[Rfam]
RNA sequence: CGCCCGGACGGAUCCCGUGGGGGGAAUCCGACCCGGGAAAGGGAAGCGCCCCCCGCUCCGGA
Numbered sequence: 001c002g003c004c005c006g007g008a009c010g011g012a013u014c015c016c017g018u019g020g021g022g023g024g025a026a027u028c029c030g031a032c033c034c035g036g037g038a039a040a041g042g043g044a045a046g047c048g049c050c051c052c053c054c055g056c057u058c059c060g061g062a
Stems, first nucleotide, its partner, number of pairs: 001060002003037005009030005014024003041051003
Dot-bracket structure: (((((((.((((((((.....))).)))))..)))))...(((.....))).......))..
Source information
This 62-nucleotide sequence from Streptomyces sp. Ru73 belongs to the Rfam family "Streptomyces RNA 2736". The base pairs follow the family's consensus structure. It is annotated as a small RNA. Rfam's curators write: Identified by deep sequencing of transcriptome at the end of exponential growth phase. Appears smaller on northern blot than sequencing transcript. This indicates processing step. Streptomyces specific.